[Rfam]
RNA: Mason-Pfizer monkey virus packaging signal
RNA sequence: CUGCGGUCGGGGUGGGGCUUGGAUAGGGGGAAUUCGGGAGGGAAGAGGCGUUUAAUCGAAGGGCAGAACAAAGUGAAAGUCAAUUCAAGAAGGAUCGCCCAAGGGAGCCUGCCCCGCCGCUGCUCAUAAAGGUACAGAAACGCCUAAUUAUGGGACAAGAAUUAAGUCGGCAUGAAAUUUUUGUUAAGCAAUUAAAAGAAGCCUUAAAGACACGAGGAGUAAAGGUUAAGAGUAAUGAUCUUUUUAAGUUUUUUGACCUUAUUAAGGACACCUGUCUGU
Numbered sequence: 001c002u003g004c005g006g007u008c009g010g011g012g013u014g015g016g017g018c019u020u021g022g023a024u025a026g027g028g029g030g031a032a033u034u035c036g037g038g039a040g041g042g043a044a045g046a047g048g049c050g051u052u053u054a055a056u057c058g059a060a061g062g063g064c065a066g067a068a069c070a071a072a073g074u075g076a077a078a079g080u081c082a083a084u085u086c087a088a089g090a091a092g093g094a095u096c097g098c099c100c101a102a103g104g105g106a107g108c109c110u111g112c113c114c115c116g117c118c119g120c121u122g123c124u125c126a127u128a129a130a131g132g133u134a135c136a137g138a139a140a141c142g143c144c145u146a147a148u149u150a151u152g153g154g155a156c157a158a159g160a161a162u163u164a165a166g167u168c169g170g171c172a173u174g175a176a177a178u179u180u181u182u183g184u185u186a187a188g189c190a191a192u193u194a195a196a197a198g199a200a201g202c203c204u205u206a207a208a209g210a211c212a213c214g215a216g217g218a219g220u221a222a223a224g225g226u227u228a229a230g231a232g233u234a235a236u237g238a239u240c241u242u243u244u245u246a247a248g249u250u251u252u253u254u255g256a257c258c259u260u261a262u263u264a265a266g267g268a269c270a271c272c273u274g275u276c277u278g279u
Stems, first nucleotide, its partner, number of pairs: 008029001013025002034048002085132002091127001096122001097120002100116001103113002143154004163206003166202002213255008223241006264279001266277004